A member of the RNA family "mir-228 microRNA precursor family", 91 nucleotides long. Rfam 15.1 lists 30 matches to the family in 27 species. The literature on the family includes a 2003 paper in Curr Biol by Ambros et al., "MicroRNAs and other tiny endogenous RNAs in C. elegans". A search with the family's covariance model found it, with a score of 59 bits.
[Rfam]
RNA sequence: UUCCCGUUCGCAAUGGCACUGCAUGAAUUCACGGACGUUUCCUUGACGGGCCAACCCGCGGAUUGUGCUGUACCAUAGCCGACGGUGAAGA
Number, nucleotide and partner (000 for none) at each position: 001u000002u000003c000004c000005c000006g083007u082008u081009c000010g079011c000012a000013a076014u075015g074016g073017c000018a071019c070020u000021g068022c067023a066024u065025g064026a063027a000028u062029u061030c060031a000032c058033g057034g056035a000036c000037g052038u000039u000040u000041c000042c000043u000044u000045g000046a000047c000048g000049g000050g000051c000052c037053a000054a000055c000056c034057c033058g032059c000060g030061g029062a028063u026064u025065g024066u023067g022068c021069u000070g019071u018072a000073c016074c015075a014076u013077a000078g000079c010080c000081g008082a007083c006084g000085g000086u000087g000088a000089a000090g000091a000